[Rfam]
Hovlinc ribozyme (hominin vlincRNA-located): a 169-nucleotide RNA sequence from Catagonus wagneri. Hovlinc is a recently evolved class of self-cleaving ribozyme found in a very long non coding RNA (vlincRNA) in hominins, including humans (genus Homo), and chimpanzees and bonobos (genus Pan), but missing in gorillas (genus Gorilla). The literature on the family includes a 2021 paper in Nat Chem Biol by Chen et al., "Hovlinc is a recently evolved class of ribozyme found in human lncRNA". The family's consensus secondary structure is taken from published work. Gene Ontology term of the family: catalytic activity.

RNA sequence: ACCCAGACCAAGCCCAAGAAUAUGGUGCCUCAGAGCCAGAUGGGCCAUGUGCUUAACCAAGAAAAGAUCUCUUUCCAACACUGUGGCCAACUCAUGAUUCUCAUGACCUAUGCUUGGAAAGGUCUGGGCUAGGAGUCAUAGGGCCUCUGACUUUGCCAGCCACUGCUAG
Numbered sequence: 001a002c003c004c005a006g007a008c009c010a011a012g013c014c015c016a017a018g019a020a021u022a023u024g025g026u027g028c029c030u031c032a033g034a035g036c037c038a039g040a041u042g043g044g045c046c047a048u049g050u051g052c053u054u055a056a057c058c059a060a061g062a063a064a065a066g067a068u069c070u071c072u073u074u075c076c077a078a079c080a081c082u083g084u085g086g087c088c089a090a091c092u093c094a095u096g097a098u099u100c101u102c103a104u105g106a107c108c109u110a111u112g113c114u115u116g117g118a119a120a121g122g123u124c125u126g127g128g129c130u131a132g133g134a135g136u137c138a139u140a141g142g143g144c145c146u147c148u149g150a151c152u153u154u155g156c157c158a159g160c161c162a163c164u165g166c167u168a169g
Stems, first nucleotide, its partner, number of pairs: 011167003018160001025154001027152001030150006046083002052133004060073002074122002092106006107142006114135002